Shown here is a 451-nucleotide sequence from Elsinoe batatas, a member of the family "RNase MRP". Rfam describes the family as follows. RNase MRP is an enzymatically active ribonucleoprotein with two distinct roles in eukaryotes. It is annotated as a ribozyme.
[Rfam]
RNA sequence: CUCUCGCUCGAAGAAUCGCAAUCAAGGCUUCCAACAGAAUGUUUUUUCGUUCUUUACAUACCGCCUUGGGAGAAAGUCCCCGGACAGCUCUGCCUUGCAGGGAAUGCUGAAAAGCGCCGCCAUAGAAGCAUCUUUCGCGGCUAAAGUCUUUCAUGCCUCCAUCCCCCAAGGUUACCCUUGGACUGCUUGCACUCCGUCCACGGAACCCUUGGAUCUACUCUCGCCGUAUCGAGGGCUAUGUCUGAAGGCAGGAUGAGGAUAUGAGUCCGUCCUAGGUAUGGCGUUUGUCUGGUACUUGGUGGAAGUGACGGAGGAGGUUCAAGGUCUUCUAAUUUGAUCAGGGGCAAGUCGGAGCUAGGUAUGAAUAGACCAUCUUUCGUCGAGGUCGAUAGAUAUGCGAUUGCCUGUUCUCGAACAUGGUAACUCGAUGGGGCUUAUUCUCGAUGCGAGA
Number, nucleotide and partner (000 for none) at each position: 001c000002u451003c450004u449005c448006g447007c446008u444009c443010g442011a441012a000013g000014a402015a401016u400017c399018g398019c397020a000021a000022u070023c068024a067025a066026g065027g064028c063029u000030u000031c000032c000033a000034a000035c000036a000037g052038a051039a050040u049041g048042u000043u000044u000045u000046u000047u000048c041049g040050u039051u038052c037053u000054u000055u000056a000057c000058a000059u000060a000061c000062c000063g028064c027065c026066u025067u024068g023069g000070g022071a000072g000073a000074a436075a435076g434077u000078c433079c432080c431081c430082g000083g000084a000085c000086a000087g000088c000089u000090c000091u000092g000093c000094c000095u000096u000097g107098c106099a105100g000101g000102g000103a000104a000105u099106g098107c097108u000109g000110a000111a000112a000113a000114g000115c000116g000117c000118c000119g000120c000121c000122a000123u000124a000125g000126a000127a000128g000129c000130a000131u000132c000133u000134u000135u000136c000137g000138c000139g000140g000141c000142u000143a000144a000145a000146g000147u000148c000149u000150u000151u000152c000153a000154u000155g000156c000157c000158u000159c000160c000161a000162u000163c000164c000165c000166c181167c180168a179169a178170g177171g176172u000173u000174a000175c000176c171177c170178u169179u168180g167181g166182a000183c000184u000185g000186c000187u000188u000189g000190c000191a000192c000193u000194c000195c000196g000197u000198c000199c000200a000201c000202g000203g000204a000205a000206c000207c000208c000209u000210u000211g000212g000213a000214u000215c000216u000217a000218c000219u000220c000221u000222c000223g000224c000225c000226g000227u000228a000229u000230c000231g000232a000233g000234g000235g000236c000237u000238a000239u000240g000241u000242c000243u000244g000245a000246a000247g000248g000249c000250a000251g000252g000253a000254u000255g000256a000257g000258g000259a000260u000261a000262u000263g000264a000265g000266u000267c000268c000269g000270u000271c000272c000273u000274a000275g000276g000277u000278a000279u000280g000281g000282c000283g000284u000285u000286u000287g000288u000289c000290u000291g000292g000293u000294a000295c363296u000297u361298g000299g000300u000301g000302g000303a000304a000305g000306u357307g356308a000309c354310g000311g000312a000313g000314g000315a000316g000317g000318u000319u000320c000321a000322a000323g000324g000325u000326c000327u000328u000329c000330u000331a000332a000333u000334u000335u000336g000337a000338u000339c000340a000341g000342g000343g350344g349345c000346a000347a000348g000349u344350c343351g000352g000353a000354g309355c000356u307357a306358g000359g000360u000361a297362u000363g295364a000365a000366u000367a000368g000369a000370c000371c000372a000373u000374c000375u000376u000377u000378c000379g000380u000381c000382g000383a000384g000385g000386u000387c000388g000389a000390u000391a000392g000393a000394u000395a000396u000397g019398c018399g017400a016401u015402u014403g000404c420405c419406u417407g416408u415409u000410c000411u000412c000413g000414a000415a408416c407417a406418u000419g405420g404421u000422a000423a000424c000425u000426c000427g000428a000429u000430g081431g080432g079433g078434c076435u075436u074437a000438u000439u000440c000441u011442c010443g009444a008445u000446g007447c006448g005449a004450g003451a002